RNA: Ribosomal S15 leader
RNA sequence: AUUUUUUGAUUUUUAUGAUAUAAUCGCCUUUUUUAAUCUCACCAAUCAGGAGGUCAUUAUGGCUUUGGAUUCGGCUAAAAAAGCAGAAAUUGUUGCGAAAUUCGCUAGAAAAGAG
Numbered sequence: 001a002u003u004u005u006u007u008g009a010u011u012u013u014u015a016u017g018a019u020a021u022a023a024u025c026g027c028c029u030u031u032u033u034u035a036a037u038c039u040c041a042c043c044a045a046u047c048a049g050g051a052g053g054u055c056a057u058u059a060u061g062g063c064u065u066u067g068g069a070u071u072c073g074g075c076u077a078a079a080a081a082a083g084c085a086g087a088a089a090u091u092g093u094u095g096c097g098a099a100a101u102u103c104g105c106u107a108g109a110a111a112a113g114a115g
Stems, first nucleotide, its partner, number of pairs: 007026005046069002049066004